[Rfam]
Annotation:
Rfam assigns this 108-nucleotide RNA from Mesobacillus zeae to the family "TPP riboswitch aptamer (THI element)". NCBI's taxonomy places the organism under Bacteria, Bacillati, Bacillota, Caryophanales, Mesobacillus. Vitamin B(1) in its active form thiamin pyrophosphate (TPP) is an essential coenzyme that is synthesised by coupling of pyrimidine and thiazole moieties in bacteria. It scores 88 bits against the family's covariance model.

RNA sequence: UUUUUCCACUAGGGGAGCCUUAGUUUAAGGCUGAGAUGAAAGUGAUACUUUUGACCCUUGGAACCUGAUCUGGAUCAUACCAGCGUAGGGAAGUGGAGUAACGGGCCC
Numbered sequence: 001u002u003u004u005u006c007c008a009c010u011a012g013g014g015g016a017g018c019c020u021u022a023g024u025u026u027a028a029g030g031c032u033g034a035g036a037u038g039a040a041a042g043u044g045a046u047a048c049u050u051u052u053g054a055c056c057c058u059u060g061g062a063a064c065c066u067g068a069u070c071u072g073g074a075u076c077a078u079a080c081c082a083g084c085g086u087a088g089g090g091a092a093g094u095g096g097a098g099u100a101a102c103g104g105g106c107c108c
Base pairs, nucleotide, nucleotide: 006096007095008094009093010092011058012057013056014055016052017031018030019029020028021027039051040050041049042048064089065088066087067086070083071082072081073080